[Rfam]
RNA sequence: CGGCCAACGCCGCCGAAUCAUGGGCGACAUCAGUCGUCGCUUGCGAACCGGGGAACCACGUCCCGGGGGUGAAUCCGCUUCACAGCGGUAGGGCUCUUCUUCCAGCCCGAACCCGUCAGCUAACCCGGUAGGCGGCACAAGCGGAAGAA
Numbered sequence: 001c002g003g004c005c006a007a008c009g010c011c012g013c014c015g016a017a018u019c020a021u022g023g024g025c026g027a028c029a030u031c032a033g034u035c036g037u038c039g040c041u042u043g044c045g046a047a048c049c050g051g052g053g054a055a056c057c058a059c060g061u062c063c064c065g066g067g068g069g070u071g072a073a074u075c076c077g078c079u080u081c082a083c084a085g086c087g088g089u090a091g092g093g094c095u096c097u098u099c100u101u102c103c104a105g106c107c108c109g110a111a112c113c114c115g116u117c118a119g120c121u122a123a124c125c126c127g128g129u130a131g132g133c134g135g136c137a138c139a140a141g142c143g144g145a146a147g148a149a
Base pairs, nucleotide, nucleotide: 011134012133013132014131018046019045047129048128049127050126051125052124057066067114068113069112075088076087077086078085091108092107093106094105